Shown here is an 82-nucleotide RNA from Setaria viridis, a member of the family "Small nucleolar RNA Z199". snoZ199 is a C/D box small nucleolar RNA, which acts as a methylation guide RNA for sites on 18S and 25S rRNA. Rice snoZ199 is reported to be homologous to Arabidopsis snoR13. It is annotated as a C/D-box small nucleolar RNA. A search with the family's covariance model found it, with a score of 52 bits. Gene Ontology terms of the family: RNA processing and nucleolus.
RNA sequence: UACUUCUUUGAAAUUAAACUGCAACAAUAUGAUGAAGUUAAAAUUCUUUAAUGAUUCCCAAGUAUUUAAGUCUCUGAUGAUA
Numbered sequence: 001u002a003c004u005u006c007u008u009u010g011a012a013a014u015u016a017a018a019c020u021g022c023a024a025c026a027a028u029a030u031g032a033u034g035a036a037g038u039u040a041a042a043a044u045u046c047u048u049u050a051a052u053g054a055u056u057c058c059c060a061a062g063u064a065u066u067u068a069a070g071u072c073u074c075u076g077a078u079g080a081u082a
Stems, first nucleotide, its partner, number of pairs: 001082002004080002034049004